[Rfam]
RNA sequence: GUAUGGCAGGAGUGAUGCGUCAAUUGGAUGUGUGAAGUGUAUUGAUGAACUCAAGUUUGAGGUUUAUUGAUAUUCUGACCUGCCAAUU
Dot-bracket structure: (..(((((((....................................................................)))))))..)
RNA: Small nucleolar RNA Z266